[Rfam]
RNA sequence: UAGAACCGCAAGGGGAGUCCAGCACGGGCUGAGAGGAAGCAGAAUGCGCUUCGACCCUGAGAACCUGUAAGUUCAAACUUACGAAGGGAUGUGGACCGGAACAAUC
Numbered sequence: 001u002a003g004a005a006c007c008g009c010a011a012g013g014g015g016a017g018u019c020c021a022g023c024a025c026g027g028g029c030u031g032a033g034a035g036g037a038a039g040c041a042g043a044a045u046g047c048g049c050u051u052c053g054a055c056c057c058u059g060a061g062a063a064c065c066u067g068u069a070a071g072u073u074c075a076a077a078c079u080u081a082c083g084a085a086g087g088g089a090u091g092u093g094g095a096c097c098g099g100a101a102c103a104a105u106c
Stems, first nucleotide, its partner, number of pairs: 006094005011058004017029004036052005064087003068081004

The family of this 106-nucleotide sequence from Salisediminibacterium beveridgei is "TPP riboswitch aptamer (THI element)".
The base pairs follow the family's consensus structure, which is taken from published work.
It scores 58 bits against the family's covariance model.
About the family: Vitamin B(1) in its active form thiamin pyrophosphate (TPP) is an essential coenzyme that is synthesised by coupling of pyrimidine and thiazole moieties in bacteria.
The organism belongs to Salisediminibacterium, within Bacteria.